[Rfam]
RNA sequence: AUGAUAAUGCAGGGAGAGACUGUGAAAGACGAGCAGCGCCGAAGGAGUAAGCCCGGACGGGUGAAUCUCUCAGGUACCGAGGACCUGUAUUGGACG
Numbered sequence: 001a002u003g004a005u006a007a008u009g010c011a012g013g014g015a016g017a018g019a020c021u022g023u024g025a026a027a028g029a030c031g032a033g034c035a036g037c038g039c040c041g042a043a044g045g046a047g048u049a050a051g052c053c054c055g056g057a058c059g060g061g062u063g064a065a066u067c068u069c070u071c072a073g074g075u076a077c078c079g080a081g082g083a084c085c086u087g088u089a090u091u092g093g094a095c096g
Base pairs, nucleotide, nucleotide: 006091007090008089009088010087011086012085013084020036021035022034023033038075039074040073041071042070045069046068047067051062052061